[Rfam]
Nucleotides: 102
Base pairs, nucleotide, nucleotide: 019087020086021085022084023083024082025081030048031047032046033045034044058078059077060076061075062074063073064072
Number, partner (000 for none) and nucleotide at each position: 001000a002000a003000u004000u005000c006000a007000a008000a009000g010000g011000g012000u013000a014000u015000c016000g017000u018000c019087u020086a021085u022084c023083g024082u025081a026000u027000a028000a029000a030048g031047u032046u033045g034044a035000u036000a037000a038000u039000a040000a041000g042000g043000u044034u045033c046032a047031a048030c049000a050000g051000u052000u053000u054000c055000u056000a057000c058078c059077a060076g061075g062074u063073u064072a065000c066000c067000a068000u069000a070000a071000a072064u073063a074062a075061u076060c077059u078058g079000a080000c081025u082024a083023c084022g085021a086020u087019a088000u089000g090000u091000a092000a093000a094000a095000u096000u097000u098000u099000a100000a101000a102000c

The family of this 102-nucleotide RNA sequence from Clostridium sp. DSM 8431 is "Purine riboswitch aptamer".
The family's consensus secondary structure is taken from published work.
NCBI's taxonomy places the organism under Bacteria, Bacillati, Eubacteriales, Clostridiaceae, Clostridium.
The match comes from Rfam's covariance-model search (81 bits).